[Rfam]
Shown here is a 74-nucleotide sequence from Geobacillus kaustophilus, a member of the family "tRNA". The family's consensus secondary structure is taken from published work. NCBI's taxonomy places the organism under Bacteria, Bacillati, Bacillota, Bacilli, Geobacillus kaustophilus. The match comes from Rfam's covariance-model search (66 bits). Its family is annotated with triplet codon-amino acid adaptor activity in the Gene Ontology. Transfer RNA (tRNA) molecules are approximately 80 nucleotides in length. It is annotated as a transfer RNA.
RNA sequence: CGGGAAGUAGCUCAGCUUGGUAGAGCACACGGUUCGGGUCCGUGAGGUCGCAGGUUCAAAUCCUGUCUUCCCGA
Numbered sequence: 001c002g003g004g005a006a007g008u009a010g011c012u013c014a015g016c017u018u019g020g021u022a023g024a025g026c027a028c029a030c031g032g033u034u035c036g037g038g039u040c041c042g043u044g045a046g047g048u049c050g051c052a053g054g055u056u057c058a059a060a061u062c063c064u065g066u067c068u069u070c071c072c073g074a
Stems, first nucleotide, its partner, number of pairs: 001073007010026004028044005050066005